[Rfam]
RNA sequence: GUCUAGUUUCAGGGGGCCACAGCAUAAACAUUCACAGCAAGGCCCUUCUCAGAUACUUACAAAAUCUGUGAAUUCUGCU
Numbered sequence: 001g002u003c004u005a006g007u008u009u010c011a012g013g014g015g016g017c018c019a020c021a022g023c024a025u026a027a028a029c030a031u032u033c034a035c036a037g038c039a040a041g042g043c044c045c046u047u048c049u050c051a052g053a054u055a056c057u058u059a060c061a062a063a064a065u066c067u068g069u070g071a072a073u074u075c076u077g078c079u
Base pairs, nucleotide, nucleotide: 013046014045015044016043017042018041021079022078023077024076026074027073050068051067052066053065054064

The family of this 79-nucleotide sequence from Geotrypetes seraphini is "Mammalian CPEB3 ribozyme".
Rfam 15.1 lists 5,706 matches to the family in 197 species.